[Rfam]
RNA sequence: AGAUAACACUAUUUUGCUAUCCCGGCCAAUCACAGUUUGUCACGUGAAAAAAUUAUCACGUAUGGCAUACUGUGAUUGGCCGGGAAUAGCAAAAUAGUGCUAUCC
Numbered sequence: 001a002g003a004u005a006a007c008a009c010u011a012u013u014u015u016g017c018u019a020u021c022c023c024g025g026c027c028a029a030u031c032a033c034a035g036u037u038u039g040u041c042a043c044g045u046g047a048a049a050a051a052a053u054u055a056u057c058a059c060g061u062a063u064g065g066c067a068u069a070c071u072g073u074g075a076u077u078g079g080c081c082g083g084g085a086a087u088a089g090c091a092a093a094a095u096a097g098u099g100c101u102a103u104c105c
Base pairs, nucleotide, nucleotide: 002104003103004102005101012094013093014092015091016090017089018088019087020086021084022083023082024081025080026079027078028077029076030075031074032073033072034071035070036069038067039066040065041064042063044061045060046059049056
The family of this 105-nucleotide RNA from Prunus yedoensis is "MIR6274 microRNA precursor family". Rfam 15.1 lists 342 matches to the family in 8 species. The base pairs follow the family's consensus structure, which was predicted with RNAalifold.